[Rfam]
RNA: mir-8364 microRNA precursor family
RNA sequence: UCUUCACUUCGCGCACUCUCUCACCGGUCAGAGGAGCGAGAGAGUGCGUGAAACGAAGAGA
Dot-bracket structure: (((((....(.((((((.((((...............)))).)))))).)....)))))..